Small nucleolar RNA SNORD60: an 83-nucleotide RNA sequence from Microcebus murinus.
The base pairs follow the family's consensus structure, which was predicted with PFOLD.
RNA sequence: AGGCUAUGAGGAAUUGCUUUAAUUUUUGACACCUCAUUUGAAAGCUACAUAUGCAGUCUGAUUAUUUUGCAAGUCUGAGUCUU
Numbered sequence: 001a002g003g004c005u006a007u008g009a010g011g012a013a014u015u016g017c018u019u020u021a022a023u024u025u026u027u028g029a030c031a032c033c034u035c036a037u038u039u040g041a042a043a044g045c046u047a048c049a050u051a052u053g054c055a056g057u058c059u060g061a062u063u064a065u066u067u068u069g070c071a072a073g074u075c076u077g078a079g080u081c082u083u
Base pairs, nucleotide, nucleotide: 001082002081003080004079044057045056046055048053